The family of this 80-nucleotide sequence from Thrips palmi is "mir-67 microRNA precursor family".

[Rfam]
RNA sequence: GCCCGCGGUCACUCACUCAAUCUGGAUGUGAUGUCAUUUGAAUUCACCAUCACAACCUCCUUGUGUGAGGGACUGCGGGC
Numbered sequence: 001g002c003c004c005g006c007g008g009u010c011a012c013u014c015a016c017u018c019a020a021u022c023u024g025g026a027u028g029u030g031a032u033g034u035c036a037u038u039u040g041a042a043u044u045c046a047c048c049a050u051c052a053c054a055a056c057c058u059c060c061u062u063g064u065g066u067g068a069g070g071g072a073c074u075g076c077g078g079g080c
Base pairs, nucleotide, nucleotide: 009071010070012069013068014067015066016065018063019062020061024057025056027054028053029052030051031050032049033048
Dot-bracket structure: ........((.(((((.(((...((.(((((((..............))))))).))...))).))))))).........
For this family Rfam cites "MicroRNAs of Bombyx mori identified by Solexa sequencing" (Liu et al., BMC Genomics, 2010).
The base pairs follow the family's consensus structure, which was predicted with RNAalifold.
It scores 62 bits against the family's covariance model.